RNA: MIR827 microRNA precursor family
Organism: Panicum hallii
RNA sequence: ACUUGUUUUGUUGGUUGUCAUCUAACCAUGCUUUUAAUUCGAUCAGUGCAUGGAUCAUGGAUGGGGAUUGGGAUGGACAUGGCACUGUCACGGGCGCUGUGAACACAGCAUGGUUAGAUGACCAUCAGCAAACAUGUU
Numbered sequence: 001a002c003u004u005g006u007u008u009u010g011u012u013g014g015u016u017g018u019c020a021u022c023u024a025a026c027c028a029u030g031c032u033u034u035u036a037a038u039u040c041g042a043u044c045a046g047u048g049c050a051u052g053g054a055u056c057a058u059g060g061a062u063g064g065g066g067a068u069u070g071g072g073a074u075g076g077a078c079a080u081g082g083c084a085c086u087g088u089c090a091c092g093g094g095c096g097c098u099g100u101g102a103a104c105a106c107a108g109c110a111u112g113g114u115u116a117g118a119u120g121a122c123c124a125u126c127a128g129c130a131a132a133c134a135u136g137u138u
Base pairs, nucleotide, nucleotide: 005133006132007131008130010129011128012127013126014125015124017122018121019120020119021118022117023116024115025114026113027112028111029110030109031108